[Rfam]
Group II catalytic intron D1-D4-3: a 171-nucleotide RNA sequence from Paenibacillus sp. UNCCL117. About the family: Group II introns are found in rRNA, tRNA and mRNA of organelles in fungi, plants and protists, and also in mRNA in bacteria. A search with the family's covariance model found it, with a score of 113 bits. Rfam links the family to the GO term Group II intron splicing. NCBI's taxonomy places the organism under Bacteria, Bacillati, Caryophanales, Paenibacillaceae, Paenibacillus.
RNA sequence: UCCACCGCGAGGUGGAAUCCGAAGGAAGCCGGAGGCAAAUGCACGGGCCAAGGUACACGAACCCAAUUUGAGGCAGGAUUAGCCGAAUGAGUCACCCAUACAUGACGAAAUCCAAAGCCGCCAAGGGCCAAUUCUGUAGACUUGGGUGGUCGGGGGCAGAAAGAUAACGUU
Numbered sequence: 001u002c003c004a005c006c007g008c009g010a011g012g013u014g015g016a017a018u019c020c021g022a023a024g025g026a027a028g029c030c031g032g033a034g035g036c037a038a039a040u041g042c043a044c045g046g047g048c049c050a051a052g053g054u055a056c057a058c059g060a061a062c063c064c065a066a067u068u069u070g071a072g073g074c075a076g077g078a079u080u081a082g083c084c085g086a087a088u089g090a091g092u093c094a095c096c097c098a099u100a101c102a103u104g105a106c107g108a109a110a111u112c113c114a115a116a117g118c119c120g121c122c123a124a125g126g127g128c129c130a131a132u133u134c135u136g137u138a139g140a141c142u143u144g145g146g147u148g149g150u151c152g153g154g155g156g157c158a159g160a161a162a163g164a165u166a167a168c169g170u171u
Base pairs, nucleotide, nucleotide: 001016002015003014004013005012006011028171030169031168036163040158041157042156044154046151047150048149049148050147062146063145064144065143066142067140073137074136075135077133078132079131080130082128083127085113087111088110091106092105093104094103
Dot-bracket structure: ((((((....))))))...........(.((....(...(((.(.(((((...........((((((.....(((.((((.((.(.((..((((........))))...)).).............)).)))).)))..).))))))))))..).)))....)....)).)